[Rfam]
RNA sequence: ACUUGUGUGAGGAGUGCUGAGCGCCUCUUCAGGGUCGAAACAAGGACAGACUCCUGAAUGUGUUCCUCU
Numbered sequence: 001a002c003u004u005g006u007g008u009g010a011g012g013a014g015u016g017c018u019g020a021g022c023g024c025c026u027c028u029u030c031a032g033g034g035u036c037g038a039a040a041c042a043a044g045g046a047c048a049g050a051c052u053c054c055u056g057a058a059u060g061u062g063u064u065c066c067u068c069u
Stems, first nucleotide, its partner, number of pairs: 020064005029057005034051003
The record is a 69-nucleotide sequence, which matches "Cyano-1 RNA" in Rfam. The family has 265 seed sequences and 283 matches in Rfam 15.1. The base pairs follow the family's consensus structure, which is taken from published work.